[Rfam]
RNA sequence: CUCUUCUCAAUGAGCUCCUUCCUGCCAACAAAUCUGUGGCAGCUGAUGGAUUCGCACGAGAAGAAAAUUAACUGUUCAGUACUGGCAAACUCCCAGUGGGGCUCCACUGAUUGUGAUUAGCCACUGCUGUACUACAAGU
Numbered sequence: 001c002u003c004u005u006c007u008c009a010a011u012g013a014g015c016u017c018c019u020u021c022c023u024g025c026c027a028a029c030a031a032a033u034c035u036g037u038g039g040c041a042g043c044u045g046a047u048g049g050a051u052u053c054g055c056a057c058g059a060g061a062a063g064a065a066a067a068u069u070a071a072c073u074g075u076u077c078a079g080u081a082c083u084g085g086c087a088a089a090c091u092c093c094c095a096g097u098g099g100g101g102c103u104c105c106a107c108u109g110a111u112u113g114u115g116a117u118u119a120g121c122c123a124c125u126g127c128u129g130u131a132c133u134a135c136a137a138g139u
Base pairs, nucleotide, nucleotide: 003063004062005061006060007059008058014055015054016050017049018048022042023041024040025039026038074132075131077129078128079127094109095108096107097106098105